[Rfam]
RNA sequence: AAGGUGACUGCGGGAGAGACGAUCCCGAUGGGACCGCGCCGAAGGAGCAACCGCCCCGGAAACUCUCAGGCAAAAGGACCGCAGCCACGCA
Numbered sequence: 001a002a003g004g005u006g007a008c009u010g011c012g013g014g015a016g017a018g019a020c021g022a023u024c025c026c027g028a029u030g031g032g033a034c035c036g037c038g039c040c041g042a043a044g045g046a047g048c049a050a051c052c053g054c055c056c057c058g059g060a061a062a063c064u065c066u067c068a069g070g071c072a073a074a075a076g077g078a079c080c081g082c083a084g085c086c087a088c089g090c091a
Stems, first nucleotide, its partner, number of pairs: 006086001008084006020036002023033001038071003041067002045065003051059002
RNA: Glycine riboswitch aptamer
Organism: Candidatus Phycosocius bacilliformis